[Rfam]
RNA: Plastid-psbM 3UTR RNA
RNA sequence: CAGCUAGUAUGGCAGAAAGAAAUCUUUCUGCCAUACUAGCUAUUCUUAUUGUAAUGUAACAAAUUGUAUUGUAUAAAACUACAGG
Numbered sequence: 001c002a003g004c005u006a007g008u009a010u011g012g013c014a015g016a017a018a019g020a021a022a023u024c025u026u027u028c029u030g031c032c033a034u035a036c037u038a039g040c041u042a043u044u045c046u047u048a049u050u051g052u053a054a055u056g057u058a059a060c061a062a063a064u065u066g067u068a069u070u071g072u073a074u075a076a077a078a079c080u081a082c083a084g085g
Stems, first nucleotide, its partner, number of pairs: 003040017